Small nucleolar RNA SNORA63: a 128-nucleotide sequence from Chrysemys picta. NCBI's taxonomy places the organism under Eukaryota, Bilateria, Sauropsida, Archelosauria, Chrysemys picta. By type it is an H/ACA-box small nucleolar RNA. Rfam describes the family as follows. E3 belongs to the H/ACA class of snoRNAs and is involved in the processing of eukaryotic pre-rRNA and has regions of complementarity to 18S rRNA. E3 is encoded in introns in the gene for protein synthesis initiation factor 4AII. Pairs were carried over by alignment from the consensus structure, which was predicted with PFOLD.
[Rfam]
RNA sequence: AUGCAGGAUAAGUUACAAUGUAGCUGUCAAGUGCUGUAUUGUCGUUCCCCCUGCUCAAAUAAAUUGUGUCAUACUAUCCCUGUCUGCCUUGAUUCCCACAGUAGACAGGGACGCUUGGUCUCGUACAU
Numbered sequence: 001a002u003g004c005a006g007g008a009u010a011a012g013u014u015a016c017a018a019u020g021u022a023g024c025u026g027u028c029a030a031g032u033g034c035u036g037u038a039u040u041g042u043c044g045u046u047c048c049c050c051c052u053g054c055u056c057a058a059a060u061a062a063a064u065u066g067u068g069u070c071a072u073a074c075u076a077u078c079c080c081u082g083u084c085u086g087c088c089u090u091g092a093u094u095c096c097c098a099c100a101g102u103a104g105a106c107a108g109g110g111a112c113g114c115u116u117g118g119u120c121u122c123g124u125a126c127a128u
Base pairs, nucleotide, nucleotide: 003054004053005052006051007050015042016041017040018039019038020037021036022035023034024033079109080108081107082106084104085103086102087101